[Rfam]
RNA sequence: GGACGCACCUCUGGAGAGCGCAUAUACAAUUAUGCCACCAAAGGGGAAGGUUCGAUUUAUAAAUCGGAACUAAACUCUCAGGUAAAAGGACAGAGAAGGGUAA
Number, nucleotide and partner (000 for none) at each position: 001g000002g000003a000004c000005g000006c098007a000008c000009c095010u094011c093012u092013g091014g000015a000016g000017a000018g000019c000020g035021c034022a033023u032024a000025u000026a000027c000028a000029a000030u000031u000032a023033u022034g021035c020036c000037a083038c082039c081040a000041a078042a000043g000044g077045g076046g075047a000048a000049g000050g070051u069052u068053c067054g000055a000056u000057u000058u000059a000060u000061a000062a000063a000064u000065c000066g000067g053068a052069a051070c050071u000072a000073a000074a000075c046076u045077c044078u041079c000080a000081g039082g038083u037084a000085a000086a000087a000088g000089g000090a000091c013092a012093g011094a010095g009096a000097a000098g006099g000100g000101u000102a000103a000
A member of the RNA family "Glycine riboswitch aptamer" from Bacillus sp. MUM 116, 103 nucleotides long.
A search with the family's covariance model found it, with a score of 55 bits.
Lineage of the source: Bacteria > Bacillota > Bacilli > Caryophanales > Bacillus.
This family represents the bacterial glycine riboswitch.